RNA sequence: GUUCAUAUUGUCAAUUAACCUCGUAUAAUGUCGGGAAUACGGCCCGAAAGUAUCUACCCAAAGACCACAAAUUUUUGGACUACGAGCGAAUGAGCGCGGCUG
Numbered sequence: 001g002u003u004c005a006u007a008u009u010g011u012c013a014a015u016u017a018a019c020c021u022c023g024u025a026u027a028a029u030g031u032c033g034g035g036a037a038u039a040c041g042g043c044c045c046g047a048a049a050g051u052a053u054c055u056a057c058c059c060a061a062a063g064a065c066c067a068c069a070a071a072u073u074u075u076u077g078g079a080c081u082a083c084g085a086g087c088g089a090a091u092g093a094g095c096g097c098g099g100c101u102g
Base pairs, nucleotide, nucleotide: 020086021085022084023083024082025081029049031047032046033045034044035043058078059077060076061075062074063073064072
About this RNA: Shown here is a 102-nucleotide RNA from Paenibacillus thalictri, a member of the family "Purine riboswitch aptamer". Pairs were carried over by alignment from the consensus structure, which is taken from published work. Its family is annotated with purine nucleobase biosynthetic process in the Gene Ontology. The family has 133 seed sequences and 4,097 matches in Rfam 15.1. The match comes from Rfam's covariance-model search (74 bits).